[Rfam]
RNA sequence: UUUCACGGGAGGGAGAGCGGCCUGGGGUGAAGGUGUAUGCAUAGAGUGUGUCGUGGAAGGUGCGUGUGGGCCGCGUGUAUGAAUGGCUGCAUGAAUGAAUGCGUGAAUGGGCGUGCAAGGCAAGCGAGAGAUUCCCUCAGCGCCUCCUCCCCCCGUCUACACCUUGAUCUUAUUUGAUCGGGUCGUGACCGCAGCCCCGCCGGGCCACCCCGAAAUGAAAAGCUCCCCUCCUGCGAAGCCCCCUGCUCGGGGCGCUGUGCAGCGAGGCCCUAUUGGCGGCGGCAGAGCCGUGGUUCCGAGGUCCCGGAGCUGGUCCUGCGGGCCCGGCGCUCAGAAGUGAUGAAUUGAUCAGAUAGACGAGGCCGGGCCUGCCCCGGGCCGCUGAUUACCGAGGCGAUUCUGAUCUGA
Numbered sequence: 001u002u003u004c005a006c007g008g009g010a011g012g013g014a015g016a017g018c019g020g021c022c023u024g025g026g027g028u029g030a031a032g033g034u035g036u037a038u039g040c041a042u043a044g045a046g047u048g049u050g051u052c053g054u055g056g057a058a059g060g061u062g063c064g065u066g067u068g069g070g071c072c073g074c075g076u077g078u079a080u081g082a083a084u085g086g087c088u089g090c091a092u093g094a095a096u097g098a099a100u101g102c103g104u105g106a107a108u109g110g111g112c113g114u115g116c117a118a119g120g121c122a123a124g125c126g127a128g129a130g131a132u133u134c135c136c137u138c139a140g141c142g143c144c145u146c147c148u149c150c151c152c153c154c155g156u157c158u159a160c161a162c163c164u165u166g167a168u169c170u171u172a173u174u175u176g177a178u179c180g181g182g183u184c185g186u187g188a189c190c191g192c193a194g195c196c197c198c199g200c201c202g203g204g205c206c207a208c209c210c211c212g213a214a215a216u217g218a219a220a221a222g223c224u225c226c227c228c229u230c231c232u233g234c235g236a237a238g239c240c241c242c243c244u245g246c247u248c249g250g251g252g253c254g255c256u257g258u259g260c261a262g263c264g265a266g267g268c269c270c271u272a273u274u275g276g277c278g279g280c281g282g283c284a285g286a287g288c289c290g291u292g293g294u295u296c297c298g299a300g301g302u303c304c305c306g307g308a309g310c311u312g313g314u315c316c317u318g319c320g321g322g323c324c325c326g327g328c329g330c331u332c333a334g335a336a337g338u339g340a341u342g343a344a345u346u347g348a349u350c351a352g353a354u355a356g357a358c359g360a361g362g363c364c365g366g367g368c369c370u371g372c373c374c375c376g377g378g379c380c381g382c383u384g385a386u387u388a389c390c391g392a393g394g395c396g397a398u399u400c401u402g403a404u405c406u407g408a
Stems, first nucleotide, its partner, number of pairs: 045145002048143002052064004083092003097133002102128001104126002108122002173221003178213004185206001187205001190204001192202001194200002242301001246300003250297003254294003259291002262288002267283003270279002309328005314322003332407004342400006361380004366375002